[Rfam]
RNA sequence: GUGUUGUUGAUGACAACCUGUCUUUAAACUCAUCAAGGAGGGGAGCAGGUUCGAUACCCAAACAC
Numbered sequence: 001g002u003g004u005u006g007u008u009g010a011u012g013a014c015a016a017c018c019u020g021u022c023u024u025u026a027a028a029c030u031c032a033u034c035a036a037g038g039a040g041g042g043g044a045g046c047a048g049g050u051u052c053g054a055u056a057c058c059c060a061a062a063c064a065c
Stems, first nucleotide, its partner, number of pairs: 001065005015051007023043002029040003